This 87-nucleotide RNA from Morganella morganii belongs to the Rfam family "CyaR/Rye RNA". The match comes from Rfam's covariance-model search (77 bits). For this family Rfam cites "Identification of novel small RNAs using comparative genomics and microarrays" (Wassarman et al., Genes Dev, 2001). Rfam's curators write: This sRNA was originally identified in a large scale screen of E. coli. It was shown to bind Hfq and called RyeE. This sRNA has since been characterised as a post-transcriptional regulator of the 18 kDa OmpX porin in Salmonella. Phylogenetic and mutational analyses suggest that a conserved RNA hairpin of this sRNA which features a C-rich apical loop, acts to sequester the Shine-Dalgarno sequence of ompX mRNA and inhibits translational initiation. It is annotated as a small RNA.

[Rfam]
RNA sequence: GACAGGAAAAUGAAGAACUAAAACGCAACAUGUAAUACCAGGAACCACCUCCUUGGUUGGCUCAAUCUCCCUUGAGCCAACCUUUUC
Numbered sequence: 001g002a003c004a005g006g007a008a009a010a011u012g013a014a015g016a017a018c019u020a021a022a023a024c025g026c027a028a029c030a031u032g033u034a035a036u037a038c039c040a041g042g043a044a045c046c047a048c049c050u051c052c053u054u055g056g057u058u059g060g061c062u063c064a065a066u067c068u069c070c071c072u073u074g075a076g077c078c079a080a081c082c083u084u085u086u087c
Base pairs, nucleotide, nucleotide: 040053041052042051043050055082056081057080058079059078060077061076062075063074064073065072